The record is a 183-nucleotide RNA sequence from Actinoplanes sp. ATCC 53533, which matches "FMN riboswitch aptamer (RFN element)" in Rfam.
[Rfam]
RNA sequence: ACGCGCUGGCGGGAUUCGGUGAAAUUCCGAACCGGCGGUAAUGCCCUGCUCCGGCAGGGCUGAGCCCGCGACCCGGACGCCUCACCAAGGCGGACGGUGGAUCUGGUGAGACUCCAGAGCCGACGGUUGAGCGGACGGCAUUCGUGCCGAUCGUUCAGACAGUCCGGAUGGGAGACAGCGCGC
Numbered sequence: 001a002c003g004c005g006c007u008g009g010c011g012g013g014a015u016u017c018g019g020u021g022a023a024a025u026u027c028c029g030a031a032c033c034g035g036c037g038g039u040a041a042u043g044c045c046c047u048g049c050u051c052c053g054g055c056a057g058g059g060c061u062g063a064g065c066c067c068g069c070g071a072c073c074c075g076g077a078c079g080c081c082u083c084a085c086c087a088a089g090g091c092g093g094a095c096g097g098u099g100g101a102u103c104u105g106g107u108g109a110g111a112c113u114c115c116a117g118a119g120c121c122g123a124c125g126g127u128u129g130a131g132c133g134g135a136c137g138g139c140a141u142u143c144g145u146g147c148c149g150a151u152c153g154u155u156c157a158g159a160c161a162g163u164c165c166g167g168a169u170g171g172g173a174g175a176c177a178g179c180g181c182g183c
Stems, first nucleotide, its partner, number of pairs: 003181006010174001017029003033122002035069004064120002073097002102118005124166003
The family's consensus secondary structure is taken from published work.